[Rfam]
RNA sequence: ACUUGUCAAAGGCAAACCAUGGGAAACGAUGGGACGCAAAGCCAUGGCCUAAGGCAUUGGAUCGCAGAGAUCACAUGCUAUGGUCGUCAGGUUACCGGG
Numbered sequence: 001a002c003u004u005g006u007c008a009a010a011g012g013c014a015a016a017c018c019a020u021g022g023g024a025a026a027c028g029a030u031g032g033g034a035c036g037c038a039a040a041g042c043c044a045u046g047g048c049c050u051a052a053g054g055c056a057u058u059g060g061a062u063c064g065c066a067g068a069g070a071u072c073a074c075a076u077g078c079u080a081u082g083g084u085c086g087u088c089a090g091g092u093u094a095c096c097g098g099g
Base pairs, nucleotide, nucleotide: 012037013036017032018031019030020029022027040093041092042091043090045089046088047084048083049082054078055077056076057075
RNA: c-di-GMP-I riboswitch aptamer